RNA sequence: UCCACCGCGAGGUGGAAUCUGAAGGAAGCUGGAGGCAAAAUUCCGACCCGAGGAACACGAACACCAUAAGGCAUAGGAUAUGGGACGAAUUUGCCAAACAAAAUGAAGUCCAAUAAACUACACGGACAUACCUAUGUAGAUGAUGCGGGUACAUGGAAGGAAAGUGAAUCGU
Dot-bracket structure: ((((((....))))))...........((.(...((....((((((((((...........((.((....(((.(.(.((((((((..((((........))))...))))...............)))).)).)))...)).)))))))...))))).....))...).))
Shown here is a 172-nucleotide RNA sequence from Paenibacillus pectinilyticus, a member of the family "Group II catalytic intron D1-D4-3". Group II introns are found in rRNA, tRNA and mRNA of organelles in fungi, plants and protists, and also in mRNA in bacteria. On this family, see Bonen and Vogel, Trends Genet 2001: "The ins and outs of group II introns". Its family is annotated with Group II intron splicing in the Gene Ontology. Lineage of the source: Bacteria > Bacilli > Caryophanales > Paenibacillaceae > Paenibacillus. Pairs were carried over by alignment from the consensus structure.